SAM riboswitch aptamer (S box leader): a 119-nucleotide RNA from Ignatzschineria ureiclastica. The source organism's lineage runs through Bacteria, Pseudomonadati, Cardiobacteriales, Ignatzschineriaceae and Ignatzschineria. The match comes from Rfam's covariance-model search (77 bits).
RNA sequence: ACUUUAUCAAGAGUGGUGGAGGGACAGGCCCUGUGAAACCCGGCAACCUGGAUACGAAAAAGGUAUCUAAGGUGCUAACUCCUACAGUAGAACCGCAAGGAUUUACUGAGAGAUAAAAG
Numbered sequence: 001a002c003u004u005u006a007u008c009a010a011g012a013g014u015g016g017u018g019g020a021g022g023g024a025c026a027g028g029c030c031c032u033g034u035g036a037a038a039c040c041c042g043g044c045a046a047c048c049u050g051g052a053u054a055c056g057a058a059a060a061a062g063g064u065a066u067c068u069a070a071g072g073u074g075c076u077a078a079c080u081c082c083u084a085c086a087g088u089a090g091a092a093c094c095g096c097a098a099g100g101a102u103u104u105a106c107u108g109a110g111a112g113a114u115a116a117a118a119g
Stems, first nucleotide, its partner, number of pairs: 003117006013041001015040003021031003026083003042076004047072002049069007080111001085108006